[Rfam]
RNA sequence: GGGUGACAUCAAGAGUUUUUGAUGUUUCCUGAUGCAAUCUUCCAACAAAAAGCUUCUGCAAUUCCUGCUUGUGGUUCUUGAGCAAGAUCCACAUGUCUCAAGUUGCCAGAUACAUGC
Numbered sequence: 001g002g003g004u005g006a007c008a009u010c011a012a013g014a015g016u017u018u019u020u021g022a023u024g025u026u027u028c029c030u031g032a033u034g035c036a037a038u039c040u041u042c043c044a045a046c047a048a049a050a051a052g053c054u055u056c057u058g059c060a061a062u063u064c065c066u067g068c069u070u071g072u073g074g075u076u077c078u079u080g081a082g083c084a085a086g087a088u089c090c091a092c093a094u095g096u097c098u099c100a101a102g103u104u105g106c107c108a109g110a111u112a113c114a115u116g117c
Base pairs, nucleotide, nucleotide: 001030002029003028005026006025007024008023009022010021011020055110056109057108067096068095070093071092072091073090074089076087077086078085